[Rfam]
Nucleotides: 075
Stems, first nucleotide, its partner, number of pairs: 013046001015044004021075003025071003028040003048064007
Number, partner (000 for none) and nucleotide at each position: 001000u002000g003000u004000g005000g006000c007000u008000c009000c010000a011000c012000a013046a014000u015044g016043g017042c018041c019000a020000u021075a022074g023073c024000a025071g026070a027069a028040g029039u030038g031000g032000u033000c034000a035000c036000g037000u038030c039029g040028u041018g042017g043016c044015c045000c046013u047000g048064c049063a050062g051061g052060u053059u054058u055000a056000a057000c058054a059053a060052a061051c062050c063049u064048g065000c066000a067000a068000a069027u070026u071025c072000a073023g074022c075021u
Mammalian CPEB3 ribozyme: a 75-nucleotide sequence from Crocodylus porosus. The match comes from Rfam's covariance-model search (46 bits). The base pairs follow the family's consensus structure, which is taken from published work. The literature on the family includes a 2006 paper in Science by Salehi-Ashtiani et al., "A genomewide search for ribozymes reveals an HDV-like sequence in the human CPEB3 gene". NCBI's taxonomy places the organism under Eukaryota, Teleostomi, Sauropsida, Sauria, Crocodylus.